The record is a 57-nucleotide sequence from Todus mexicanus, which matches "Selenocysteine insertion sequence 1" in Rfam.
The incorporation of selenocysteine into a protein sequence is directed by an in-frame UGA codon (usually a stop codon) within the coding region of the mRNA. Selenoprotein mRNAs contain a conserved secondary structure in the 3' UTR that is required for the distinction of UGA stop from UGA selenocysteine. The selenocysteine insertion sequence (SECIS) is around 60 nt in length and adopts a hairpin structure which is sufficiently well-defined and conserved to act as a computational screen for selenoprotein genes.
RNA sequence: GACGCUCCAUGACGGCCGCGGCCGAAACUUUGGGGCCGUGGCCAGAACUUCAGCGUC
Numbered sequence: 001g002a003c004g005c006u007c008c009a010u011g012a013c014g015g016c017c018g019c020g021g022c023c024g025a026a027a028c029u030u031u032g033g034g035g036c037c038g039u040g041g042c043c044a045g046a047a048c049u050u051c052a053g054c055g056u057c
Base pairs, nucleotide, nucleotide: 001057002056003055004054005053014043015042016041017040018039019038020037021036022035023034028033